[Rfam]
RNA: c-di-GMP-I riboswitch aptamer
RNA sequence: UUUUUUAUUUGCCAAACUUGUUGUGAAGCAAGGACGGAAAGCCAUGGACCUCUCCACUCUGAGGCCGCCAGGUUGCACGA
Number, nucleotide and partner (000 for none) at each position: 001u000002u000003u000004u000005u000006u000007a000008u000009u000010u000011g000012c037013c036014a000015a000016a000017c032018u031019u030020g029021u028022u027023g000024u000025g000026a000027a022028g021029c020030a019031a018032g017033g000034a000035c000036g013037g012038a000039a000040a074041g073042c072043c071044a000045u070046g069047g068048a000049c064050c063051u062052c061053u000054c000055c000056a000057c000058u000059c000060u000061g052062a051063g050064g049065c000066c000067g000068c047069c046070a045071g043072g042073u041074u040075g000076c000077a000078c000079g000080a000